[Rfam]
Background: A member of the RNA family "pemK RNA", 116 nucleotides long.
RNA sequence: AUAAUGAUACUUGCGUCCAGUCCUAAAGUCGAGCGUUGAAGCGGCCGAAAGCCGUGAGCCGUCGCAACAAAGGAGGGUGCUUCGGAGAGAUCCUCGGAGGGGUGAGAUUCCCAUGA
Numbered sequence: 001a002u003a004a005u006g007a008u009a010c011u012u013g014c015g016u017c018c019a020g021u022c023c024u025a026a027a028g029u030c031g032a033g034c035g036u037u038g039a040a041g042c043g044g045c046c047g048a049a050a051g052c053c054g055u056g057a058g059c060c061g062u063c064g065c066a067a068c069a070a071a072g073g074a075g076g077g078u079g080c081u082u083c084g085g086a087g088a089g090a091u092c093c094u095c096g097g098a099g100g101g102g103u104g105a106g107a108u109u110c111c112c113a114u115g116a
Stems, first nucleotide, its partner, number of pairs: 012113001013080006081099003085095003100112003
Rfam's curators put it in the seed alignment.